RNA sequence: GGCUGGUCCGACGGUAGUGGGUUAUCAGAACUUAUUAACUAUUAGUGUCACUAAAGUUGGUAUUCAACCCCCCACUGCUAAAUUUGACUGGCUAAA
Numbered sequence: 001g002g003c004u005g006g007u008c009c010g011a012c013g014g015u016a017g018u019g020g021g022u023u024a025u026c027a028g029a030a031c032u033u034a035u036u037a038a039c040u041a042u043u044a045g046u047g048u049c050a051c052u053a054a055a056g057u058u059g060g061u062a063u064u065c066a067a068c069c070c071c072c073c074a075c076u077g078c079u080a081a082a083u084u085u086g087a088c089u090g091g092c093u094a095a096a
Stems, first nucleotide, its partner, number of pairs: 002092007010085002015080001016076006033062003037058002